[Rfam]
RNA sequence: UGAUACCAGGGUCAAAAGGUCAGAAAGCCGAUGCAAGCUUGCUUGCAAGAGGAUUUUUGACCUCUUGACCCGCCAAAAACAUGAGUAAGUAGCCAUUUUUCAAAGAAAAAUGAGCGGAUUACGAAUGUUUUUGAGGAUUGCGAGAGUGCAAAGCACGUAGCAAUCUGGUAUCA
Dot-bracket structure: (((((((..((.....((((((((((.((..(.((((....))))..)..)).)))))))))).....))....((((((((..((((...((((((((((...)))))))).))...))))..))))))))..(((((((....((((...))))...))))))))))))))